[Rfam]
RNA sequence: GCGGACCUUUUCGCCGCCUUAAGCAAGCGGGCAUCGGUUUAAGGGAAGGAUAUCCAUUGGCCGUAACGCAAGUGCAACCCUGUACUUGUAUUCACGGUAGUAUCACCGGUGGUGCUGGCGUGAAGCGGUCUAAGCAUGGACCGCACAAUGAAACGGUACUUUUGUAUUGUGCUCGUUGUAUUUGGCGCAUUGUUAACAUCCGGGAAUGGGGGUUGGCGUAUUUUCAACAACUCAAUCACGGUGAUAAUCAACACGUCAGGCAAGUAAGCCCGGUAAGCCGCCCUGCGGGGCGGUUUUCCUU
Number, nucleotide and partner (000 for none) at each position: 001g000002c000003g000004g000005a000006c000007c048008u047009u046010u045011u044012c043013g000014c030015c029016g028017c027018c000019u000020u000021a000022a000023g000024c000025a000026a000027g017028c016029g015030g014031g038032c037033a000034u000035c000036g000037g032038u031039u000040u000041a000042a000043g012044g011045g010046a009047a008048g007049g000050a000051u000052a000053u000054c000055c000056a000057u000058u000059g000060g186061c185062c184063g000064u000065a000066a000067c000068g000069c088070a087071a086072g085073u084074g083075c082076a000077a000078c000079c000080c000081u000082g075083u074084a073085c072086u071087u070088g069089u000090a000091u124092u123093c122094a121095c120096g119097g000098u117099a116100g000101u114102a113103u112104c111105a110106c000107c000108g000109g000110u105111g104112g103113u102114g101115c000116u099117g098118g000119c096120g095121u094122g093123a092124a091125g144126c143127g142128g141129u140130c139131u138132a000133a000134g000135c000136a000137u000138g131139g130140a129141c128142c127143g126144c125145a179146c178147a177148a176149u175150g174151a173152a000153a170154c169155g168156g167157u166158a165159c164160u000161u000162u000163u000164g159165u158166a157167u156168u155169g154170u153171g000172c000173u151174c150175g149176u148177u147178g146179u145180a000181u000182u000183u000184g062185g061186c060187g265188c264189a000190u263191u262192g261193u260194u259195a000196a000197c000198a000199u000200c000201c000202g000203g000204g000205a000206a000207u000208g000209g225210g224211g223212g222213u000214u000215g000216g000217c000218g000219u000220a000221u000222u212223u211224u210225c209226a000227a000228c000229a000230a000231c000232u000233c000234a000235a000236u000237c000238a000239c000240g000241g252242u251243g000244a000245u000246a000247a000248u000249c000250a000251a242252c241253a000254c000255g000256u000257c000258a000259g194260g193261c192262a191263a190264g188265u187266a000267a000268g000269c000270c000271c000272g299273g298274u000275a296276a295277g294278c293279c292280g291281c290282c289283c288284u000285g000286c000287g000288g283289g282290g281291c280292g279293g278294u277295u276296u275297u000298c273299c272300u000301u000

Record summary:
ryfA RNA: a 301-nucleotide sequence from Yersinia intermedia. This family consists of a number of bacterial RNA genes of 305 bases in length. The ryfA RNA gene is present in E. coli, Shigella flexneri and Salmonella species where it is found between the ydaN and dbpA genes. The function of this RNA is unknown. The source organism's lineage runs through Bacteria, Pseudomonadota, Enterobacterales, Yersiniaceae and Yersinia intermedia. Rfam's curators put it in the seed alignment.